[Rfam]
RNA sequence: UGCACUGCAUGGUAUCUGUGUUCAGCACUUUAUUCCUGCUGUGUGUUCAAAGAACAGUGCAAUAUAAAUCAGUAUCUGGCAUCAUUGGUUUCCUUGGCUUUGUGCAUGUUAAACCUGGUAUUUUUAUUUUGUUUUUU
Numbered sequence: 001u002g003c004a005c006u007g008c009a010u011g012g013u014a015u016c017u018g019u020g021u022u023c024a025g026c027a028c029u030u031u032a033u034u035c036c037u038g039c040u041g042u043g044u045g046u047u048c049a050a051a052g053a054a055c056a057g058u059g060c061a062a063u064a065u066a067a068a069u070c071a072g073u074a075u076c077u078g079g080c081a082u083c084a085u086u087g088g089u090u091u092c093c094u095u096g097g098c099u100u101u102g103u104g105c106a107u108g109u110u111a112a113a114c115c116u117g118g119u120a121u122u123u124u125u126a127u128u129u130u131g132u133u134u135u136u137u
Stems, first nucleotide, its partner, number of pairs: 002060006015053003018046004023041005063126002066123004070117003079105004
Dot-bracket structure: .((((((.......(((((((.(((((.........))))).))))....))).))))))..((.(((((((......((((...................)))).........)))..)))).))...........
Background
A member of the RNA family "Small nucleolar RNA SNORA8" from Phyllostomus discolor, 137 nucleotides long. The family is grouped with related families in Rfam's "SNORA8 clan". A search with the family's covariance model found it, with a score of 113 bits. The source organism's lineage runs through Eukaryota, Eumetazoa, Chordata, Vertebrata and Phyllostomus. ACA8 is a member of the H/ACA class of snoRNA that guide the sites of modification of uridines to pseudouridines.